This 106-nucleotide RNA sequence from Salibaculum griseiflavum belongs to the Rfam family "TPP riboswitch aptamer (THI element)". The base pairs follow the family's consensus structure, which is taken from published work. A search with the family's covariance model found it, with a score of 73 bits. The source organism's lineage runs through Bacteria, Pseudomonadati, Alphaproteobacteria, Roseobacteraceae and Salibaculum.
[Rfam]
RNA sequence: CGCGCUACCUCGGGGUGCUUCGGAAACGAAGCUGAGAUGCCAAUCCGGCGAACCCGUUGAACCUGAACCGGUUAAGACCGGCGGAGGGAAGGUUUGUGAGCGAUCC
Numbered sequence: 001c002g003c004g005c006u007a008c009c010u011c012g013g014g015g016u017g018c019u020u021c022g023g024a025a026a027c028g029a030a031g032c033u034g035a036g037a038u039g040c041c042a043a044u045c046c047g048g049c050g051a052a053c054c055c056g057u058u059g060a061a062c063c064u065g066a067a068c069c070g071g072u073u074a075a076g077a078c079c080g081g082c083g084g085a086g087g088g089a090a091g092g093u094u095u096g097u098g099a100g101c102g103a104u105c106c
Stems, first nucleotide, its partner, number of pairs: 007093004011056004016050001017032005039049003062087003068081004